[Rfam]
The record is a 127-nucleotide RNA sequence from Nomascus leucogenys, which matches "Small nucleolar RNA SNORA63" in Rfam.
Rfam describes the family as follows. E3 belongs to the H/ACA class of snoRNAs and is involved in the processing of eukaryotic pre-rRNA and has regions of complementarity to 18S rRNA. E3 is encoded in introns in the gene for protein synthesis initiation factor 4AII.
The source organism's lineage runs through Eukaryota, Chordata, Tetrapoda, Eutheria and Nomascus.
For this family Rfam cites "Three small nucleolar RNAs that are involved in ribosomal RNA precursor processing" (Mishra and Eliceiri, Proc Natl Acad Sci U S A, 1997).
RNA sequence: AAGCAGGAUUCAGACUACAAUAUAGCUGCUAAGUGCUGUGUUGUCGUUCCCCCUGCUCAAAAUAAAGUUGUUUCUUAACUAUCUAACAUCACAAUUAAAAGAACUAGAAAAGCAAGAGCAAACACAU
Numbered sequence: 001a002a003g004c005a006g007g008a009u010u011c012a013g014a015c016u017a018c019a020a021u022a023u024a025g026c027u028g029c030u031a032a033g034u035g036c037u038g039u040g041u042u043g044u045c046g047u048u049c050c051c052c053c054u055g056c057u058c059a060a061a062a063u064a065a066a067g068u069u070g071u072u073u074c075u076u077a078a079c080u081a082u083c084u085a086a087c088a089u090c091a092c093a094a095u096u097a098a099a100a101g102a103a104c105u106a107g108a109a110a111a112g113c114a115a116g117a118g119c120a121a122a123c124a125c126a127u
Stems, first nucleotide, its partner, number of pairs: 003056005017044010082108004089101001